Actinobacteria sRNA Ms_AS-8: a 73-nucleotide RNA sequence from Nostocoides jenkinsii. A reference for the family is Li et al. (2013), "Identification of small RNAs in Mycobacterium smegmatis using heterologous Hfq", RNA. Pairs were carried over by alignment from the consensus structure. The family's RNA type in Rfam is small RNA.

[Rfam]
RNA sequence: CCUGAUCAGAGCUACUUGGACUUCAGAUCUUCCUCGGGAAGGUGCGCCAUCUCACGCCCGCCCCGCCGAGCAC
Number, nucleotide and partner (000 for none) at each position: 001c000002c000003u000004g029005a028006u027007c026008a023009g022010a000011g000012c000013u000014a000015c000016u000017u000018g000019g000020a000021c000022u009023u008024c000025a000026g007027a006028u005029c004030u000031u000032c000033c000034u000035c000036g000037g000038g053039a052040a000041g051042g050043u049044g048045c000046g000047c000048c044049a043050u042051c041052u039053c038054a000055c000056g000057c000058c000059c000060g000061c000062c000063c000064c000065g000066c000067c000068g000069a000070g000071c000072a000073c000